[Rfam]
RNA sequence: GAGCUGUGAUGAUAUAUAGAGAAAGUCAUGCACCACUCUGAUUAUUGUGAUGUUAAAUUUCUCAUACCCAUAUACUCUUCUGAGCUC
Numbered sequence: 001g002a003g004c005u006g007u008g009a010u011g012a013u014a015u016a017u018a019g020a021g022a023a024a025g026u027c028a029u030g031c032a033c034c035a036c037u038c039u040g041a042u043u044a045u046u047g048u049g050a051u052g053u054u055a056a057a058u059u060u061c062u063c064a065u066a067c068c069c070a071u072a073u074a075c076u077c078u079u080c081u082g083a084g085c086u087c
Stems, first nucleotide, its partner, number of pairs: 001087004
Dot-bracket structure: ((((...............................................................................))))
Shown here is an 87-nucleotide sequence from Nicotiana sylvestris, a member of the family "Small nucleolar RNA Z221/R21b". The match comes from Rfam's covariance-model search (73 bits). The family's consensus secondary structure was predicted with WAR. Taxonomically the source falls in Nicotiana (Eukaryota, Magnoliopsida, eudicotyledons, Nicotianoideae). The family has 12 seed sequences and 588 matches in Rfam 15.1. It is annotated as a C/D-box small nucleolar RNA.